[Rfam]
RNA sequence: UCUGGACCAGUGACGGCUUGUCCGUAAACCCAACAUUGGGGAGGGCAAGCCUGAUGAUCGCCAGC
Numbered sequence: 001u002c003u004g005g006a007c008c009a010g011u012g013a014c015g016g017c018u019u020g021u022c023c024g025u026a027a028a029c030c031c032a033a034c035a036u037u038g039g040g041g042a043g044g045g046c047a048a049g050c051c052u053g054a055u056g057a058u059c060g061c062c063a064g065c
Base pairs, nucleotide, nucleotide: 002064003063004062005061015051016050017049018048019047020046021045022044023043030039031038032037

Source information:
The record is a 65-nucleotide RNA from Pleuronectes platessa, which matches "Selenocysteine insertion sequence 1" in Rfam. Gene Ontology term of the family: selenocysteine incorporation. The base pairs follow the family's consensus structure, which is taken from published work. By type it is a cis-regulatory element. From the family's description: The incorporation of selenocysteine into a protein sequence is directed by an in-frame UGA codon (usually a stop codon) within the coding region of the mRNA. Selenoprotein mRNAs contain a conserved secondary structure in the 3' UTR that is required for the distinction of UGA stop from UGA selenocysteine. The selenocysteine insertion sequence (SECIS) is around 60 nt in length and adopts a hairpin structure which is sufficiently well-defined and conserved to act as a computational screen for selenoprotein genes. It scores 40 bits against the family's covariance model.